[Rfam]
Nucleotides: 163
Stems, first nucleotide, its partner, number of pairs: 012123004016048004023042005049091004054087001056084003060080003063076002093118004097113002100110002139162005145156004
Number, partner (000 for none) and nucleotide at each position: 001000a002000a003000a004000c005000u006000u007000a008000c009000c010000u011000g012123g013122c014121u015120g016048g017047g018046g019045g020000u021000a022000u023042c024041u025040c026039g027038u028000g029000a030000u031000c032000a033000u034000c035000a036000a037000g038027a039026c040025g041024g042023g043000a044000u045019c046018c047017c048016c049091a050090u051089g052088g053000c054087g055000a056084g057083g058082c059000c060080u061079g062078u063076c064075c065000a066000u067000u068000g069000c070000a071000c072000u073000u074000u075064g076063g077000g078062a079061c080060g081000g082058g083057c084056u085000g086000a087054c088052c089051c090050g091049u092000g093118u094117g095116g096115c097113a098112g099000u100110c101109u102000c103000g104000a105000g106000u107000u108000g109101a110100g111000a112098u113097u114000c115096g116095c117094c118093a119000a120015c121014a122013g123012u124000u125000u126000a127000a128000u129000u130000u131000u132000u133000g134000c135000g136000u137000a138000u139162c140161g141160g142159g143158g144000c145156u146155g147154c148153g149000u150000a151000c152000g153148c154147g155146c156145g157000g158143c159142c160141c161140u162139g163000a
Shown here is a 163-nucleotide RNA sequence from Caenorhabditis japonica, a member of the family "U1 spliceosomal RNA". For this family Rfam cites "The uRNA database" (Zwieb, Nucleic Acids Res, 1997). A search with the family's covariance model found it, with a score of 127 bits. It is annotated as a spliceosomal small nuclear RNA. Taxonomically the source falls in Caenorhabditis (Eukaryota, Metazoa, Rhabditoidea, Peloderinae). Its family is annotated with mRNA 5'-splice site recognition, pre-mRNA 5'-splice site binding and U1 snRNP in the Gene Ontology.